[Rfam]
RNA sequence: AAAUCUUGUCACAGGUGAGAUAUCUAUGGUAACUCUUUAGGCAUUACUUCGAACGAGACACAAGAUCGAACAUAAAAUGACAGCCCUUCUACGAGUGAUUAGCCUUGUCGUGAUUAGCGUGGUGGUGAUUAUUAUGCCACCGUGCGGGGCUGCACAUCGGCGAAGAAUGGCUUAAAAAUCAAGCCUGAAUCUCGAAAAACCCCCGCACCGAAAGGUCCGGGGGUUUUUUAUUAACUGACGCAAUGACAAUGAGGAACAGAGAAUGCACGACAGCAUAAAAUCCUGUUUCUGUAAUAGUGA
Numbered sequence: 001a002a003a004u005c006u007u008g009u010c011a012c013a014g015g016u017g018a019g020a021u022a023u024c025u026a027u028g029g030u031a032a033c034u035c036u037u038u039a040g041g042c043a044u045u046a047c048u049u050c051g052a053a054c055g056a057g058a059c060a061c062a063a064g065a066u067c068g069a070a071c072a073u074a075a076a077a078u079g080a081c082a083g084c085c086c087u088u089c090u091a092c093g094a095g096u097g098a099u100u101a102g103c104c105u106u107g108u109c110g111u112g113a114u115u116a117g118c119g120u121g122g123u124g125g126u127g128a129u130u131a132u133u134a135u136g137c138c139a140c141c142g143u144g145c146g147g148g149g150c151u152g153c154a155c156a157u158c159g160g161c162g163a164a165g166a167a168u169g170g171c172u173u174a175a176a177a178a179u180c181a182a183g184c185c186u187g188a189a190u191c192u193c194g195a196a197a198a199a200c201c202c203c204c205g206c207a208c209c210g211a212a213a214g215g216u217c218c219g220g221g222g223g224u225u226u227u228u229u230a231u232u233a234a235c236u237g238a239c240g241c242a243a244u245g246a247c248a249a250u251g252a253g254g255a256a257c258a259g260a261g262a263a264u265g266c267a268c269g270a271c272a273g274c275a276u277a278a279a280a281u282c283c284u285g286u287u288u289c290u291g292u293a294a295u296a297g298u299g300a
Base pairs, nucleotide, nucleotide: 006032007031008030009029010028011027037075038074039073041071045065048062049058050057085254086253087252090249094244097241100238102235105233107231109119110118111117121141122140123139124138125137128135129134142161143160146157148155162192164190169186170185172183173182194229195228196227197226198225199224200223201222202221203220204219205218207216208215209214255287256286257285258284259283261281263276264275265274
The family of this 300-nucleotide RNA sequence from Mangrovibacter sp. MFB070 is "Soft rot Enterobacteriaceae Rev 39 5'UTR". For this family Rfam cites "Discovery and profiling of small RNAs responsive to stress conditions in the plant pathogen Pectobacterium atrosepticum" (Kwenda et al., BMC Genomics, 2016). The base pairs follow the family's consensus structure, which was predicted with RNAfold. Rfam links the family to the GO term cellular response to starvation. It is annotated as a cis-regulatory element. The source organism's lineage runs through Bacteria, Pseudomonadota, Gammaproteobacteria, Enterobacteriaceae and Mangrovibacter.